[Rfam]
RNA sequence: UGGUGCUUGCUGGUUGUAACAGCAACUCCAUGUGGAAGGUGUCAGUGUUCCAGUGGAGCUGCUGUUACCAGCAGAGAGUCA
Numbered sequence: 001u002g003g004u005g006c007u008u009g010c011u012g013g014u015u016g017u018a019a020c021a022g023c024a025a026c027u028c029c030a031u032g033u034g035g036a037a038g039g040u041g042u043c044a045g046u047g048u049u050c051c052a053g054u055g056g057a058g059c060u061g062c063u064g065u066u067a068c069c070a071g072c073a074g075a076g077a078g079u080c081a
Stems, first nucleotide, its partner, number of pairs: 010074003016068008026058006033052003
RNA: mir-194 microRNA precursor family